[Rfam]
RNA: Bacillus-plasmid RNA
RNA sequence: UGUGUCAACGGUAAGCGGACAGAUCGAAGCGAUAGCGAAGAGAAGGAGCAUUAAGGAGUUGAUACACUCACAAUG
Numbered sequence: 001u002g003u004g005u006c007a008a009c010g011g012u013a014a015g016c017g018g019a020c021a022g023a024u025c026g027a028a029g030c031g032a033u034a035g036c037g038a039a040g041a042g043a044a045g046g047a048g049c050a051u052u053a054a055g056g057a058g059u060u061g062a063u064a065c066a067c068u069c070a071c072a073a074u075g
Base pairs, nucleotide, nucleotide: 001066002065003064004063005062006061007060008059009058
Dot-bracket structure: (((((((((................................................))))))))).........